RNA sequence: UUGCACCUAUAUUUAUUUUUACCUGCCAUCUUUUAUGAUGGUGUGUACUUAAGUUGGUGCAUAGAGGAAAUGCUGCUCUUGUAGCAGCGGCGGCCAGACAACCGUUGAGAGAUGGAUCCACAGAUGAACAAUCUUUCUGCUGUUUGUCUACUAAUUCUAUCUCACAUUG
Numbered sequence: 001u002u003g004c005a006c007c008u009a010u011a012u013u014u015a016u017u018u019u020u021a022c023c024u025g026c027c028a029u030c031u032u033u034u035a036u037g038a039u040g041g042u043g044u045g046u047a048c049u050u051a052a053g054u055u056g057g058u059g060c061a062u063a064g065a066g067g068a069a070a071u072g073c074u075g076c077u078c079u080u081g082u083a084g085c086a087g088c089g090g091c092g093g094c095c096a097g098a099c100a101a102c103c104g105u106u107g108a109g110a111g112a113u114g115g116a117u118c119c120a121c122a123g124a125u126g127a128a129c130a131a132u133c134u135u136u137c138u139g140c141u142g143u144u145u146g147u148c149u150a151c152u153a154a155u156u157c158u159a160u161c162u163c164a165c166a167u168u169g
Base pairs, nucleotide, nucleotide: 002061003060004059005058006057012053016051020047021046022045024043025042026041027040028039029038030037109163110162111161112160113159114158115157116156127145128144
small nucleolar RNA snoR143: a 169-nucleotide sequence from Zea mays. NCBI's taxonomy places the organism under Eukaryota, Streptophyta, Spermatophyta, Panicoideae, Zea.